[Rfam]
RNA sequence: AUAACAUCCGGACCGUCAUUCUACUGAGCAAUGUCUCCUGCUUGGGGAAGAUCUUCCCUUUAUCGU
Numbered sequence: 001a002u003a004a005c006a007u008c009c010g011g012a013c014c015g016u017c018a019u020u021c022u023a024c025u026g027a028g029c030a031a032u033g034u035c036u037c038c039u040g041c042u043u044g045g046g047g048a049a050g051a052u053c054u055u056c057c058c059u060u061u062a063u064c065g066u
Stems, first nucleotide, its partner, number of pairs: 004063001006061001010057003015052003020048003024045006
mir-2774 microRNA precursor family: a 66-nucleotide RNA from Bombyx mori. The family's consensus secondary structure was predicted with RNAalifold. A search with the family's covariance model found it, with a score of 56 bits. On this family, see Liu et al., BMC Genomics 2010: "MicroRNAs of Bombyx mori identified by Solexa sequencing".